Archaeal small subunit ribosomal RNA: a 497-nucleotide part of an RNA from Methanospirillum lacunae. The family has 86 seed sequences and 709 matches in Rfam 15.1. The family's consensus secondary structure is taken from published work. The source organism's lineage runs through Archaea, Methanobacteriati, Methanomicrobia, Methanospirillaceae and Methanospirillum. Gene Ontology terms of the family: structural constituent of ribosome and ribosome. The family is grouped with related families in Rfam's "SSU clan".
[Rfam]
RNA sequence: AUUCUGGUUGAUCCUGCCAGAGGCCACUGCUAUCGGGGUUUGACUAAGCCAUGCGAGUCGAGAGGUGCAAGACCUCGGCGAACUGCUCAGUAACACGUGGACAAUCUGCCCUGAAGAAGAGAAUAAUCCCGGGAAACUGGGGGUAAUGCUCUAUAGUCCGGGAGGGCUGGAAUGCUCUCCGGAUGAAAGAUCCGUCGCUUCAGGAUGAGUCUGCGGCCGAUUAGGUAGUUGUUGGGGUAAAAGCCCAACAAGCCUGUCAUCGGUACGGGUUGUGGGAGCAAGAGCCCGGAGAUGGAUUCUGAGACACGAAUCCAGGCCCUACGGGGCGCAGCAGGCGCGAAAACUUUACAAUGCGGGCAACCGUGAUAAGGAAACCCCGAGUGCCACCACAGGGUGGCUGUCCACCAGUUUAAACAACUGGUGAAGAAAGGGCCGGGCAAGACCGGUGCCAGCCGCCGCGGUAAUACCGGCGGCUCGAGUGGUGGCCGCUUUUACUG
Numbered sequence: 001a002u003u004c005u006g007g008u009u010g011a012u013c014c015u016g017c018c019a020g021a022g023g024c025c026a027c028u029g030c031u032a033u034c035g036g037g038g039u040u041u042g043a044c045u046a047a048g049c050c051a052u053g054c055g056a057g058u059c060g061a062g063a064g065g066u067g068c069a070a071g072a073c074c075u076c077g078g079c080g081a082a083c084u085g086c087u088c089a090g091u092a093a094c095a096c097g098u099g100g101a102c103a104a105u106c107u108g109c110c111c112u113g114a115a116g117a118a119g120a121g122a123a124u125a126a127u128c129c130c131g132g133g134a135a136a137c138u139g140g141g142g143g144u145a146a147u148g149c150u151c152u153a154u155a156g157u158c159c160g161g162g163a164g165g166g167c168u169g170g171a172a173u174g175c176u177c178u179c180c181g182g183a184u185g186a187a188a189g190a191u192c193c194g195u196c197g198c199u200u201c202a203g204g205a206u207g208a209g210u211c212u213g214c215g216g217c218c219g220a221u222u223a224g225g226u227a228g229u230u231g232u233u234g235g236g237g238u239a240a241a242a243g244c245c246c247a248a249c250a251a252g253c254c255u256g257u258c259a260u261c262g263g264u265a266c267g268g269g270u271u272g273u274g275g276g277a278g279c280a281a282g283a284g285c286c287c288g289g290a291g292a293u294g295g296a297u298u299c300u301g302a303g304a305c306a307c308g309a310a311u312c313c314a315g316g317c318c319c320u321a322c323g324g325g326g327c328g329c330a331g332c333a334g335g336c337g338c339g340a341a342a343a344c345u346u347u348a349c350a351a352u353g354c355g356g357g358c359a360a361c362c363g364u365g366a367u368a369a370g371g372a373a374a375c376c377c378c379g380a381g382u383g384c385c386a387c388c389a390c391a392g393g394g395u396g397g398c399u400g401u402c403c404a405c406c407a408g409u410u411u412a413a414a415c416a417a418c419u420g421g422u423g424a425a426g427a428a429a430g431g432g433c434c435g436g437g438c439a440a441g442a443c444c445g446g447u448g449c450c451a452g453c454c455g456c457c458g459c460g461g462u463a464a465u466a467c468c469g470g471c472g473g474c475u476c477g478a479g480u481g482g483u484g485g486c487c488g489c490u491u492u493u494a495c496u497g
Base pairs, nucleotide, nucleotide: 004020005019006018007017008016022487023486024485025484026483027482028481029480030479031478033380034379035378036377037376038375039374040373041372042338048336049335050334052333053332054331057079058078059077062076063075064074065073066072086291087290088289096215097214098213099212100211101210102209105208106207110204111203112202113201114200115199116198118152119151120150121149127142128141129140130139131138132137157183158182159181160180161179162178164176166175167174189196190195217263218262219261224254225253226252229251230250231249232248233247234246235245236244266288267287268286269285270281271280272279273278293314294313295312296311297310298309316327317326318325319324344370346369347368348367352365353364354363355362356361383398384397385396386395387394388393403423404422405421406420407419408418409417430476431475432474433473434472435471443470444469445468446467452459453458